[Rfam]
Nucleotides: 066
Stems, first nucleotide, its partner, number of pairs: 001066005015052002017049008030039003
Number, partner (000 for none) and nucleotide at each position: 001066u002065u003064u004063g005062c006000g007000u008000u009000a010000a011000u012000g013000a014000a015052g016051a017049c018048u019047g020046c021045a022044c023043a024042g025000a026000a027000a028000a029000c030039c031038u032037u033000u034000c035000u036000a037032g038031g039030g040000a041000u042024u043023u044022g045021u046020g047019u048018g049017g050000a051016u052015c053000c054000g055000a056000u057000a058000a059000u060000u061000g062005g063004c064003a065002a066001a
Shown here is a 66-nucleotide RNA sequence from Tupaia belangeri, a member of the family "Selenocysteine insertion sequence 1". The match comes from Rfam's covariance-model search (40 bits). Rfam classes the family as a cis-regulatory element. NCBI's taxonomy places the organism under Eukaryota, Opisthokonta, Metazoa, Deuterostomia, Tupaia belangeri. The incorporation of selenocysteine into a protein sequence is directed by an in-frame UGA codon (usually a stop codon) within the coding region of the mRNA. Selenoprotein mRNAs contain a conserved secondary structure in the 3' UTR that is required for the distinction of UGA stop from UGA selenocysteine. The selenocysteine insertion sequence (SECIS) is around 60 nt in length and adopts a hairpin structure which is sufficiently well-defined and conserved to act as a computational screen for selenoprotein genes.